[Rfam]
RNA sequence: CCUCCUAUGCCUCUCAACGAUGCACAAACCAGGAGGU
Numbered sequence: 001c002c003u004c005c006u007a008u009g010c011c012u013c014u015c016a017a018c019g020a021u022g023c024a025c026a027a028a029c030c031a032g033g034a035g036g037u
Stems, first nucleotide, its partner, number of pairs: 001036006008024003

The family of this 37-nucleotide sequence from Serangoonvirus essarone is "abiF RNA". Taxonomically the source falls in Serangoonvirus essarone (Viruses, Uroviricota, Caudoviricetes, Serangoonvirus). The family's RNA type in Rfam is small RNA. From the family's description: Actinobacteria, Bacteroidetes, Clostridia, Proteobacteria, one Clostridia phage. Pairs were carried over by alignment from the consensus structure, which is taken from published work.